[Rfam]
RNA sequence: UUCGGCCUCGCUGCAUUUCCUAUGUAGCCCCCUGCAAGCCGUCGCCGACGCCUUCCCGAUCGAAUAAUUCGAUACACAAGCAGGCGAUCCAGUCGCCUCUCCGCGGCGCGGC
Numbered sequence: 001u002u003c004g005g006c007c008u009c010g011c012u013g014c015a016u017u018u019c020c021u022a023u024g025u026a027g028c029c030c031c032c033u034g035c036a037a038g039c040c041g042u043c044g045c046c047g048a049c050g051c052c053u054u055c056c057c058g059a060u061c062g063a064a065u066a067a068u069u070c071g072a073u074a075c076a077c078a079a080g081c082a083g084g085c086g087a088u089c090c091a092g093u094c095g096c097c098u099c100u101c102c103g104c105g106g107c108g109c110g111g112c
Stems, first nucleotide, its partner, number of pairs: 010028006038112004043108005084096005
Overview: The record is a 112-nucleotide RNA sequence from Pseudomonas sp. 21C1, which matches "Pseudomon-Rho RNA" in Rfam. The family's RNA type in Rfam is cis-regulatory element. It scores 77 bits against the family's covariance model. NCBI's taxonomy places the organism under Bacteria, Gammaproteobacteria, Pseudomonadales, Pseudomonadaceae, Pseudomonas. Pairs were carried over by alignment from the consensus structure, which is taken from published work.